[Rfam]
RNA sequence: AGCACAAACUUGGAGUAGAGUGGAUUAGUAGGAUCAGCUGACCAUACCCAACUAUUCUACUUUAAGUUUGUGCCC
Numbered sequence: 001a002g003c004a005c006a007a008a009c010u011u012g013g014a015g016u017a018g019a020g021u022g023g024a025u026u027a028g029u030a031g032g033a034u035c036a037g038c039u040g041a042c043c044a045u046a047c048c049c050a051a052c053u054a055u056u057c058u059a060c061u062u063u064a065a066g067u068u069u070g071u072g073c074c075c
Base pairs, nucleotide, nucleotide: 002073003072004071005070006069007068008067009066011064012063013062014061015060016059017058018057019056020055021054022053023052025050028047029046030045032043034041035040
This 75-nucleotide sequence from Haemonchus placei belongs to the Rfam family "mir-5928 microRNA precursor family".
Lineage of the source: Eukaryota > Eumetazoa > Chromadorea > Trichostrongylidae > Haemonchus.